[Rfam]
RNA sequence: UUGGUUCCGGUUCACGUGCGCACCAAGCGGACGACCCGGACC
Number, nucleotide and partner (000 for none) at each position: 001u000002u000003g042004g041005u040006u000007c039008c038009g037010g036011u000012u000013c000014a000015c033016g032017u031018g000019c029020g028021c027022a000023c000024c000025a000026a000027g021028c020029g019030g000031a017032c016033g015034a000035c000036c010037c009038g008039g007040a005041c004042c003
The record is a 42-nucleotide RNA sequence from Kribbella voronezhensis, which matches "L31-Actinobacteria ribosomal protein leader" in Rfam. The match comes from Rfam's covariance-model search (40 bits).